This 37-nucleotide RNA from Fukomys damarensis belongs to the Rfam family "Renin stability regulatory element (REN-SRE)". About the family: This family represents a cis-acting element in the 3'-UTR of the renin (REN) gene called renin stability regulatory element (REN-SRE) which acts to regulate renin production. REN-SRE is thought to destabilise the mRNA, promoting degradation of the sequence. It has been found that a number of proteins bind to the REN-SRE to stabilise the mRNA and promote translation. The base pairs follow the family's consensus structure, which is taken from published work. Lineage of the source: Eukaryota > Bilateria > Gnathostomata > Glires > Fukomys.

RNA sequence: CUGCUUUGAGGACAAAUAGAAUAAGGGCUUCAUGUUC
Numbered sequence: 001c002u003g004c005u006u007u008g009a010g011g012a013c014a015a016a017u018a019g020a021a022u023a024a025g026g027g028c029u030u031c032a033u034g035u036u037c
Stems, first nucleotide, its partner, number of pairs: 001019002005016003